[Rfam]
RNA: mir-275 microRNA precursor family
RNA sequence: AUCGGUUAGUUUUUGCGGGCUGCUGCAGGCACUCUUAGACUCUGUAAUGUUGACGAAGUCAGGUACCUGAAGUAGCGCGCGAAAACGAAACCA
Numbered sequence: 001a002u003c004g005g006u007u008a009g010u011u012u013u014u015g016c017g018g019g020c021u022g023c024u025g026c027a028g029g030c031a032c033u034c035u036u037a038g039a040c041u042c043u044g045u046a047a048u049g050u051u052g053a054c055g056a057a058g059u060c061a062g063g064u065a066c067c068u069g070a071a072g073u074a075g076c077g078c079g080c081g082a083a084a085a086c087g088a089a090a091c092c093a
Stems, first nucleotide, its partner, number of pairs: 009086004014081001016079002019076004031064002035062001038060004